[Rfam]
RNA sequence: GUGACGAACGAGCCGAAUUCCCGUAUGGGAAACGGGGGAACCACUUUGGGUGAAUUGAUCUCGCAAGAGAGGGAUCAUAGGGGACCUUCAACCGAAUCCUUAAGCUAACCUCGUAGGCGUUGGAAGGAGUAUAU
Numbered sequence: 001g002u003g004a005c006g007a008a009c010g011a012g013c014c015g016a017a018u019u020c021c022c023g024u025a026u027g028g029g030a031a032a033c034g035g036g037g038g039a040a041c042c043a044c045u046u047u048g049g050g051u052g053a054a055u056u057g058a059u060c061u062c063g064c065a066a067g068a069g070a071g072g073g074a075u076c077a078u079a080g081g082g083g084a085c086c087u088u089c090a091a092c093c094g095a096a097u098c099c100u101u102a103a104g105c106u107a108a109c110c111u112c113g114u115a116g117g118c119g120u121u122g123g124a125a126g127g128a129g130u131a132u133a134u
Stems, first nucleotide, its partner, number of pairs: 012118003018031003032114006048099003056077007080093002
Dot-bracket structure: ...........(((...(((........)))((((((..........(((.....(((((((........)))))))..((..........))...))).........)))))).)))................
Description:
A member of the RNA family "c-di-AMP riboswitch aptamer (ydaO/yuaA leader)" from Fontibacillus panacisegetis, 134 nucleotides long. Gene Ontology terms of the family: regulation of gene expression and cyclic-di-AMP binding. The match comes from Rfam's covariance-model search (69 bits).